[Rfam]
RNA sequence: CCCAGGUAUGGCGACAUGGUGCCGAAAACCAUAGCAGGGAAGAUAUUUGGUUCCAUCUGCUCUCUGAGUGGAGUGCUAGUCAUUGCGUUACCUGUGCCUGUGAUCGUGUCCAAC
Numbered sequence: 001c002c003c004a005g006g007u008a009u010g011g012c013g014a015c016a017u018g019g020u021g022c023c024g025a026a027a028a029c030c031a032u033a034g035c036a037g038g039g040a041a042g043a044u045a046u047u048u049g050g051u052u053c054c055a056u057c058u059g060c061u062c063u064c065u066g067a068g069u070g071g072a073g074u075g076c077u078a079g080u081c082a083u084u085g086c087g088u089u090a091c092c093u094g095u096g097c098c099u100g101u102g103a104u105c106g107u108g109u110c111c112a113a114c
Base pairs, nucleotide, nucleotide: 005110007108008107009106010105011104014101015100016099018097021095022094037077038076040074049063050062
RNA: Potassium channel RNA editing signal